[Rfam]
RNA sequence: CUGACGGACAGAUGCGACGACCCUCGCUCCGCGAAACCGGGCACCUGGCGCGAGGAAAGCAAGUGGUGCGACCGACUAUUCGUUCG
Dot-bracket structure: (.((((((.((.(((......((((((.(.........[[[[[[[..).))))))...)))...]]]]]..]]..)).)))))).)
This 86-nucleotide sequence from Deinococcus peraridilitoris belongs to the Rfam family "c-di-GMP-II-GAG riboswitch aptamer". For this family Rfam cites "Bioinformatic analysis of riboswitch structures uncovers variant classes with altered ligand specificity" (Weinberg et al., Proc Natl Acad Sci U S A, 2017). The sequence is in the family's curated seed alignment. The base pairs follow the family's consensus structure, which is taken from published work. Lineage of the source: Bacteria > Deinococcota > Deinococci > Deinococcales > Deinococcus peraridilitoris.